[Rfam]
RNA sequence: AGUGCAAGUCGGCUUGUCGCUGCAAAUCUCAUGGAUUUGGGGAGGAAAGUCCGGGCAACAUAGAGCGCCAUACUUCCUAACGGGAAGGGUGUCAACUGGCGACGGUUGGCAUACAGAAAGUGCCGCAGAAAAUAUACCGCCCCGAUCGCUAUCGGGGUAAGGGUGAAAAGGUGGAGUAAGAGCCCACCGCUUCGGCAGUGAUGUCGAGGGCAUGGCAAACCUUAUGGGUUGAAAGAUCAAAUAGGCCUCGGGCAAAGAGCUGCUCGUUCGAUUCUCGAUUUUCGAGAUUCCGGGGUGGGUAGAUCGAUGGAUCCUGAUUGUGAAGUCAGGACUAGAUAAAUGACAAGCGUCUUCACUUUUUAGUGGAGAUUACAGAACCCGGCUUACAGACUUGCACUUUUU
Dot-bracket structure: ((((((((((((((((((.((.((((((.....)))))).))....[[[.[[[[[((((...[[[..((((((((((.....)))))(((((((((((....)))))))))).)((...(((((............((((((((((....))))))))..)).......(((((.........)))))(((((((((....)))))))).)..)))..)))))))))))))...((((......((((((......................(((((..]]])))))...)))))).....))))......((((((((....))))))))..........))))))).............................]]]]]]]].).))))))))))....
Numbered sequence: 001a002g003u004g005c006a007a008g009u010c011g012g013c014u015u016g017u018c019g020c021u022g023c024a025a026a027u028c029u030c031a032u033g034g035a036u037u038u039g040g041g042g043a044g045g046a047a048a049g050u051c052c053g054g055g056c057a058a059c060a061u062a063g064a065g066c067g068c069c070a071u072a073c074u075u076c077c078u079a080a081c082g083g084g085a086a087g088g089g090u091g092u093c094a095a096c097u098g099g100c101g102a103c104g105g106u107u108g109g110c111a112u113a114c115a116g117a118a119a120g121u122g123c124c125g126c127a128g129a130a131a132a133u134a135u136a137c138c139g140c141c142c143c144g145a146u147c148g149c150u151a152u153c154g155g156g157g158u159a160a161g162g163g164u165g166a167a168a169a170g171g172u173g174g175a176g177u178a179a180g181a182g183c184c185c186a187c188c189g190c191u192u193c194g195g196c197a198g199u200g201a202u203g204u205c206g207a208g209g210g211c212a213u214g215g216c217a218a219a220c221c222u223u224a225u226g227g228g229u230u231g232a233a234a235g236a237u238c239a240a241a242u243a244g245g246c247c248u249c250g251g252g253c254a255a256a257g258a259g260c261u262g263c264u265c266g267u268u269c270g271a272u273u274c275u276c277g278a279u280u281u282u283c284g285a286g287a288u289u290c291c292g293g294g295g296u297g298g299g300u301a302g303a304u305c306g307a308u309g310g311a312u313c314c315u316g317a318u319u320g321u322g323a324a325g326u327c328a329g330g331a332c333u334a335g336a337u338a339a340a341u342g343a344c345a346a347g348c349g350u351c352u353u354c355a356c357u358u359u360u361u362a363g364u365g366g367a368g369a370u371u372a373c374a375g376a377a378c379c380c381g382g383c384u385u386a387c388a389g390a391c392u393u394g395c396a397c398u399u400u401u402u
Stems, first nucleotide, its partner, number of pairs: 001398010011387001012348007020042002023039006047385003051382005056231004063282003068227005073087005088114001089112010115222002120220002122216003137162002139158008170188005189211001190209008235305004245296006273287005312331008

Rfam assigns this 402-nucleotide sequence from Algoriphagus zhangzhouensis to the family "Bacterial RNase P class A". The family's RNA type in Rfam is ribozyme. Taxonomically the source falls in Algoriphagus (Bacteria, Pseudomonadati, Cytophagia, Cyclobacteriaceae). Ribonuclease P (RNase P) is a ubiquitous endoribonuclease, found in archaea, bacteria and eukarya as well as chloroplasts and mitochondria. Its family is annotated with ribonuclease P activity, dimeric ribonuclease P complex and tRNA processing in the Gene Ontology.